Shown here is a 64-nucleotide RNA sequence from Myotis lucifugus, a member of the family "mir-9242 microRNA precursor family". A search with the family's covariance model found it, with a score of 62 bits. The family has 2 seed sequences and 940 matches in Rfam 15.1.

[Rfam]
RNA sequence: GGCCUUCCUCUUUGGGGCGAUCGAUCACGGGGCUCCACUAUUGAUUGCCCCAAAGAGGUAGGUC
Numbered sequence: 001g002g003c004c005u006u007c008c009u010c011u012u013u014g015g016g017g018c019g020a021u022c023g024a025u026c027a028c029g030g031g032g033c034u035c036c037a038c039u040a041u042u043g044a045u046u047g048c049c050c051c052a053a054a055g056a057g058g059u060a061g062g063u064c
Stems, first nucleotide, its partner, number of pairs: 001064005007058019029036002